[Rfam]
RNA sequence: ACCGUCCUUCUCUUGGGGUGGCGCUACUGUCCGAUGAACGUUUAGUGAGGACAGUACUGCUAACGCUCAGGCAACACACUCGCACCUGCUAGGGCUCCGCCUUAACCGGGUGCAAUUUUUGGAACC
Numbered sequence: 001a002c003c004g005u006c007c008u009u010c011u012c013u014u015g016g017g018g019u020g021g022c023g024c025u026a027c028u029g030u031c032c033g034a035u036g037a038a039c040g041u042u043u044a045g046u047g048a049g050g051a052c053a054g055u056a057c058u059g060c061u062a063a064c065g066c067u068c069a070g071g072c073a074a075c076a077c078a079c080u081c082g083c084a085c086c087u088g089c090u091a092g093g094g095c096u097c098c099g100c101c102u103u104a105a106c107c108g109g110g111u112g113c114a115a116u117u118u119u120u121g122g123a124a125c126c
Stems, first nucleotide, its partner, number of pairs: 006018004021060003026055007038046002082113006090104006
Dot-bracket structure: .....((((.....))))..(((..(((((((.....((.....))..)))))))..))).....................((((((..((((((...))))))...)))))).............